[Rfam]
RNA sequence: AAAACGGUCCUUUUCAGGACCACCAAUAUCUCUAACAUACUAAUUU
Numbered sequence: 001a002a003a004a005c006g007g008u009c010c011u012u013u014u015c016a017g018g019a020c021c022a023c024c025a026a027u028a029u030c031u032c033u034a035a036c037a038u039a040c041u042a043a044u045u046u
Base pairs, nucleotide, nucleotide: 006021007020008019009018010017011016
Histone 3' UTR stem-loop: a 46-nucleotide RNA sequence from Aphis gossypii. Rfam's curators write: The mRNAs of metazoan histone genes lack a poly-A tail. 3' end processing occurs at a site between a highly conserved stem-loop (modelled by this family) and a purine rich region around 20 nts downstream (the histone downstream element, or HDE). The stem-loop is bound by a 31 kDa stem-loop binding protein (SLBP - also termed the histone hairpin binding protein, or HBP). Together with U7 snRNA binding of the HDE, SLBP binding nucleate s the formation of the processing complex. The histone 3' UTR stem-loop is also involved in nucleocytoplasmic transport of the mRNA, and in stability regulation and translation efficiency in the cytoplasm. It is annotated as a cis-regulatory element. The match comes from Rfam's covariance-model search (35 bits).